[Rfam]
RNA sequence: UAAACUCUGCAGUAAUGCAAGAGUUGAACUGUCAGAAUGCAGCAGAGGUCAUAGUAGAUUGGUGGAUAUAUACACUAAUUGAAGGAU
Numbered sequence: 001u002a003a004a005c006u007c008u009g010c011a012g013u014a015a016u017g018c019a020a021g022a023g024u025u026g027a028a029c030u031g032u033c034a035g036a037a038u039g040c041a042g043c044a045g046a047g048g049u050c051a052u053a054g055u056a057g058a059u060u061g062g063u064g065g066a067u068a069u070a071u072a073c074a075c076u077a078a079u080u081g082a083a084g085g086a087u
Stems, first nucleotide, its partner, number of pairs: 001026002004024004008019004038047001040045001048087003057080008
Description:
The record is an 87-nucleotide RNA from Halanaerobium hydrogeniformans, which matches "Group II catalytic intron D1-D4-1" in Rfam. A search with the family's covariance model found it, with a score of 51 bits. The source organism's lineage runs through Bacteria, Bacillati, Bacillota, Halanaerobiales and Halanaerobium. Rfam's curators write: Group II introns are found in rRNA, tRNA and mRNA of organelles in fungi, plants and protists, and also in mRNA in bacteria.